[Rfam]
RNA sequence: UAGCUCAGUGGGUAGAGCAGUUGACUUUUAAUCAAUGGGUCGUAGGUUCGAGCCGAGCGAAGCGAGACGACAACGCGCAGCGUUGCCCGAAGGGCGAGGCCAGAGGCCGGGUCAAUCCUGCACGACCCACCA
Numbered sequence: 001u002a003g004c005u006c007a008g009u010g011g012g013u014a015g016a017g018c019a020g021u022u023g024a025c026u027u028u029u030a031a032u033c034a035a036u037g038g039g040u041c042g043u044a045g046g047u048u049c050g051a052g053c054c055g056a057g058c059g060a061a062g063c064g065a066g067a068c069g070a071c072a073a074c075g076c077g078c079a080g081c082g083u084u085g086c087c088c089g090a091a092g093g094g095c096g097a098g099g100c101c102a103g104a105g106g107c108c109g110g111g112u113c114a115a116u117c118c119u120g121c122a123c124g125a126c127c128c129a130c131c132a
Stems, first nucleotide, its partner, number of pairs: 015123001017121004022115001036096002040094002047091004054064002071085006
A member of the RNA family "RtT RNA" from Chimaeribacter arupi, 132 nucleotides long. Rfam 15.1 lists 651 matches to the family in 204 species. The organism belongs to Chimaeribacter, within Bacteria. The family's consensus secondary structure is taken from published work. Rfam describes the family as follows. This family represents a bacterial cis-regulatory element known as RtT RNA. The exact function of RtT is unknown although it is thought that it may be involved in changing the cellular response in relation to amino acid starvation. The family's RNA type in Rfam is cis-regulatory element. The match comes from Rfam's covariance-model search (66 bits).